[Rfam]
RNA sequence: UAUUUUGCACCCUAGGUGAUGAAUAGAGUUUCUAUAUAUAUAUAUAUAUAGAAACUCUAUUCAUCACCUAGGGGGUAAAAUA
Number, nucleotide and partner (000 for none) at each position: 001u000002a081003u080004u079005u078006u077007g000008c074009a000010c073011c072012c071013u070014a069015g068016g067017u066018g065019a064020u063021g062022a061023a000024u059025a058026g057027a056028g055029u000030u000031u054032c000033u052034a000035u000036a000037u046038a045039u000040a000041u000042a000043u000044a000045u038046a037047u000048a000049u000050a000051g000052a033053a000054a031055c028056u027057c026058u025059a024060u000061u022062c021063a020064u019065c018066a017067c016068c015069u014070a013071g012072g011073g010074g008075g000076u000077a006078a005079a004080a003081u002082a000

The record is an 82-nucleotide sequence from Hordeum vulgare, which matches "mir-2763 microRNA precursor family" in Rfam. Pairs were carried over by alignment from the consensus structure, which was predicted with RNAalifold. The match comes from Rfam's covariance-model search (50 bits). The organism belongs to Hordeum vulgare, within Eukaryota.